[Rfam]
Rfam assigns this 126-nucleotide RNA sequence from Paeniglutamicibacter gangotriensis to the family "SAM (S-adenosyl methionine) riboswitch aptamer". The family is grouped with related families in Rfam's "SAM clan". Taxonomically the source falls in Paeniglutamicibacter gangotriensis (Bacteria, Bacillati, Actinomycetota, Micrococcaceae).

RNA sequence: CUUCACGAGAUGUACGCCGUUUUUGGGCUCCGACCUGGCGCACGCACCAACCCCAUGCUUCACGGGUGGUUCGGAUGACGAAGCGGUCCUUGUCAGCAGCCGCUGUCUGGAGGACAAGAGCAAACG
Dot-bracket structure: ((((....(..((.(((........((......))..))).)).)(((..(((..(.....).))).))).........))))..((.((((((..................)))))).)).....